[Rfam]
RNA sequence: UUUGCUGUAAUAACGGCGGAAAACUCGCUCGUGCCAUCGUCGUCUUCACGAUGUCACGGCAGGUGUUCCCACGUUAAUCCCAAUU
Dot-bracket structure: ..(...(...(((((..((((.(((.(((.(((..(((((.......)))))..)))))).))).))))..)))))..)...)..
The record is an 85-nucleotide RNA sequence from Schmidtea mediterranea, which matches "mir-2147 microRNA precursor family" in Rfam. It is one of the family's seed sequences. Its family is annotated with miRNA-mediated post-transcriptional gene silencing and RISC complex in the Gene Ontology.